Description: A member of the RNA family "Small nucleolar RNA SNORD22" from Ceuthmochares aereus, 126 nucleotides long. Gene Ontology terms of the family: nucleolus and RNA processing. By type it is a C/D-box small nucleolar RNA. The organism belongs to Ceuthmochares, within Eukaryota.
Nucleotides: 126
Base pairs, nucleotide, nucleotide: 001125002124003123004122
Number, partner (000 for none) and nucleotide at each position: 001125c002124c003123c004122c005000c006000a007000u008000g009000a010000g011000g012000a013000a014000a015000a016000c017000c018000c019000c020000a021000c022000g023000c024000g025000u026000c027000c028000g029000a030000c031000c032000c033000c034000u035000c036000c037000g038000u039000g040000c041000u042000g043000c044000g045000c046000c047000a048000g049000c050000g051000c052000c053000u054000g055000c056000a057000a058000a059000g060000g061000c062000u063000g064000a065000a066000c067000c068000c069000a070000c071000u072000g073000g074000u075000g076000a077000c078000g079000g080000c081000g082000g083000a084000g085000g086000g087000a088000c089000a090000g091000g092000g093000g094000g095000a096000c097000g098000c099000c100000g101000u102000g103000u104000c105000c106000a107000g108000a109000g110000g111000g112000g113000a114000c115000g116000g117000u118000c119000u120000g121000a122004g123003g124002g125001g126000g